[Rfam]
Nucleotides: 292
Base pairs, nucleotide, nucleotide: 018154019153020152021151022150023149024148025147026084027083028082029080030079031078033076034075036073037070038069039068041066042065048057049056050055092146094144095143096142099135100134101133103131105129106128107127166214167213177202178201180200181199182198183197184196185195186193187192219285220284221283222282225279226278235271236270237269238268239267242265243264244263247257248256249255250254
Number, partner (000 for none) and nucleotide at each position: 001000u002000u003000c004000u005000u006000a007000c008000a009000a010000a011000a012000a013000a014000c015000a016000u017000g018154a019153g020152a021151u022150u023149u024148g025147u026084g027083u028082c029080c030079a031078g032000c033076g034075u035000c036073c037070c038069u039068u040000c041066a042065c043000c044000g045000a046000a047000a048057c049056u050055g051000u052000u053000c054000g055050c056049a057048g058000c059000g060000g061000a062000g063000g064000u065042g066041u067000a068039a069038g070037g071000u072000u073036g074000u075034a076033u077000g078031u079030u080029g081000a082028g083027g084026c085000a086000g087000u088000u089000c090000a091000a092146u093000c094144g095143u096142c097000c098000a099135u100134g101133g102000a103131g104000c105129c106128a107127u108000c109000a110000a111000c112000c113000u114000a115000c116000c117000a118000a119000g120000g121000u122000a123000u124000u125000c126000u127107a128106u129105g130000a131103u132000g133101u134100c135099a136000a137000u138000a139000u140000c141000c142096g143095a144094u145000u146092g147025a148024c149023a150022a151021a152020u153019c154018u155000c156000a157000g158000a159000a160000a161000g162000a163000u164000c165000g166214g167213u168000c169000c170000u171000u172000a173000u174000g175000a176000a177202a178201c179000c180200u181199g182198a183197g184196u185195c186193g187192c188000u189000u190000c191000g192187g193186c194000u195185g196184a197183u198182u199181c200180g201178g202177u203000g204000g205000a206000u207000g208000a209000g210000u211000g212000u213167a214166c215000u216000g217000a218000a219285g220284a221283c222282g223000u224000c225279a226278g227000a228000u229000u230000c231000c232000a233000a234000a235271u236270c237269u238268g239267u240000u241000u242265g243264c244263c245000u246000a247257g248256g249255c250254u251000g252000u253000u254250a255249g256248c257247c258000c259000u260000u261000g262000a263244g264243g265242u266000u267239g268238c269237g270236g271235a272000a273000u274000a275000a276000c277000c278226c279225u280000c281000u282222c283221g284220u285219c286000u287000a288000c289000a290000u291000u292000u
The family of this 292-nucleotide RNA from Monilinia vaccinii-corymbosi is "A. fumigatus sRNA Afu_309".
For this family Rfam cites "Small ncRNA transcriptome analysis from Aspergillus fumigatus suggests a novel mechanism for regulation of protein synthesis" (Jochl et al., Nucleic Acids Res, 2008).
The match comes from Rfam's covariance-model search (166 bits).
The family has 10 seed sequences and 663 matches in Rfam 15.1.
By type it is a small RNA.
The organism belongs to Monilinia, within Eukaryota.